[Rfam]
Notes
Shown here is a 231-nucleotide sequence from Slackia sp. CM382, a member of the family "raiA RNA".
RNA sequence: UUCUUUCGGGUCUGUAGUUGCGGAGGGCAACCUCCAAGCCCAUGGCAGAUGCGGUCAAAAGGGUCCACGUAAGCUGCGUUUCGGCGCAUGCGAGCAUGGCGUAUCCUAGAAGUAAGUCGUACCUUCCGGUCGUUUCCGCGGCCAUCCAGGCCGCCUGGAAGAGAGGGUGGAGCGGCGACGCGAAUCCCCGGUGCGCGAGUGUGGGGGCAAAGACUAGGUCAGCCGAAAGAA
Numbered sequence: 001u002u003c004u005u006u007c008g009g010g011u012c013u014g015u016a017g018u019u020g021c022g023g024a025g026g027g028c029a030a031c032c033u034c035c036a037a038g039c040c041c042a043u044g045g046c047a048g049a050u051g052c053g054g055u056c057a058a059a060a061g062g063g064u065c066c067a068c069g070u071a072a073g074c075u076g077c078g079u080u081u082c083g084g085c086g087c088a089u090g091c092g093a094g095c096a097u098g099g100c101g102u103a104u105c106c107u108a109g110a111a112g113u114a115a116g117u118c119g120u121a122c123c124u125u126c127c128g129g130u131c132g133u134u135u136c137c138g139c140g141g142c143c144a145u146c147c148a149g150g151c152c153g154c155c156u157g158g159a160a161g162a163g164a165g166g167g168u169g170g171a172g173c174g175g176c177g178a179c180g181c182g183a184a185u186c187c188c189c190g191g192u193g194c195g196c197g198a199g200u201g202u203g204g205g206g207g208c209a210a211a212g213a214c215u216a217g218g219u220c221a222g223c224c225g226a227a228a229g230a231a
Stems, first nucleotide, its partner, number of pairs: 001231009012222003015216005042202003045055001048105006064099002097209001118195005123161007165188003172181003

Lineage of the source: Bacteria > Actinomycetota > Coriobacteriia > Eggerthellaceae > Slackia.